RNA sequence: UUGAAGCUCCAUCUACAAAUGGAUAAGAUUUCGGUCUUUGUGUAUACGAGUUUUUGAAAAUAACGGAGCAAUACCAAUUUCUCGCAAGAGGGUCGGUAUUGCUCCGUU
Numbered sequence: 001u002u003g004a005a006g007c008u009c010c011a012u013c014u015a016c017a018a019a020u021g022g023a024u025a026a027g028a029u030u031u032c033g034g035u036c037u038u039u040g041u042g043u044a045u046a047c048g049a050g051u052u053u054u055u056g057a058a059a060a061u062a063a064c065g066g067a068g069c070a071a072u073a074c075c076a077a078u079u080u081c082u083c084g085c086a087a088g089a090g091g092g093u094c095g096g097u098a099u100u101g102c103u104c105c106g107u108u
Stems, first nucleotide, its partner, number of pairs: 008023005062108013079090003
The family of this 108-nucleotide RNA is "Plastid-psbA-1 3UTR RNA". Pairs were carried over by alignment from the consensus structure, which was predicted with LocARNA. It is one of the family's seed sequences. Rfam classes the family as a cis-regulatory element. The literature on the family includes a 2023 paper in Plant Commun by Richter et al., "Retrograde signaling in plants: A critical review focusing on the GUN pathway and beyond".